[Rfam]
A member of the RNA family "RtT RNA" from Shimwellia blattae, 130 nucleotides long. The organism belongs to Shimwellia blattae, within Bacteria. The base pairs follow the family's consensus structure, which is taken from published work. About the family: This family represents a bacterial cis-regulatory element known as RtT RNA. The exact function of RtT is unknown although it is thought that it may be involved in changing the cellular response in relation to amino acid starvation. A reference for the family is Bosl and Kersten (1991), "A novel RNA product of the tyrT operon of Escherichia coli", Nucleic Acids Res.
RNA sequence: AUAUUCUUCCGUACGGGAAGGAUGAGAACCUUCGACUAAGGUUCGACUCGAGCGAUAGCGAGAGAACGUUGCGCAGCAACGGCCCGCAGGGCGAGGAACGAAGUGACGAGUAAUCCUUCCCCCACCACCA
Numbered sequence: 001a002u003a004u005u006c007u008u009c010c011g012u013a014c015g016g017g018a019a020g021g022a023u024g025a026g027a028a029c030c031u032u033c034g035a036c037u038a039a040g041g042u043u044c045g046a047c048u049c050g051a052g053c054g055a056u057a058g059c060g061a062g063a064g065a066a067c068g069u070u071g072c073g074c075a076g077c078a079a080c081g082g083c084c085c086g087c088a089g090g091g092c093g094a095g096g097a098a099c100g101a102a103g104u105g106a107c108g109a110g111u112a113a114u115c116c117u118u119c120c121c122c123c124a125c126c127a128c129c130a
Stems, first nucleotide, its partner, number of pairs: 015121007023113001033093002036091002042088001044086002049060002067081006